[Rfam]
This 77-nucleotide RNA sequence from Methylobacterium planeticum belongs to the Rfam family "Makes More Granules Regulator RNA (mmgR)". It scores 70 bits against the family's covariance model. Rfam 15.1 lists 1,791 matches to the family in 918 species. About the family: SuhB later renamed mmgR (makes more granules regulator) was a putative non-coding RNA found multiple times in the Agrobacterium tumefaciens genome and related alpha-proteobacteria. Pairs were carried over by alignment from the consensus structure. Gene Ontology terms of the family: DNA-templated transcription, termination, response to nitrogen compound and protein binding. The source organism's lineage runs through Bacteria, Alphaproteobacteria, Hyphomicrobiales, Methylobacteriaceae and Methylobacterium.
RNA sequence: GGCUGCAGCCCUUUCUUGGGCGUUUCCUCCCUAGACUUCGGGCCGCUCCGCAAGGGCGGCCUUUUUUCUUCUGCGUC
Numbered sequence: 001g002g003c004u005g006c007a008g009c010c011c012u013u014u015c016u017u018g019g020g021c022g023u024u025u026c027c028u029c030c031c032u033a034g035a036c037u038u039c040g041g042g043c044c045g046c047u048c049c050g051c052a053a054g055g056g057c058g059g060c061c062u063u064u065u066u067u068c069u070u071c072u073g074c075g076u077c
Stems, first nucleotide, its partner, number of pairs: 008021004040062009